[Rfam]
RNA sequence: GACCCAGGGGUAUUUUGCUCUAACGUUUCACUCGCGAUUGAAAUGUUAGAGGAAAAUACCCCUGGGUU
Number, nucleotide and partner (000 for none) at each position: 001g068002a067003c066004c065005c064006a063007g062008g061009g060010g059011u058012a057013u056014u055015u054016u053017g000018c051019u050020c049021u048022a047023a046024c045025g044026u043027u042028u041029c040030a039031c000032u037033c000034g000035c000036g000037a032038u000039u030040g029041a028042a027043a026044u025045g024046u023047u022048a021049g020050a019051g018052g000053a016054a015055a014056a013057u012058a011059c010060c009061c008062c007063u006064g005065g004066g003067u002068u001
RNA: mir-2041 microRNA precursor family
Organism: Nematostella vectensis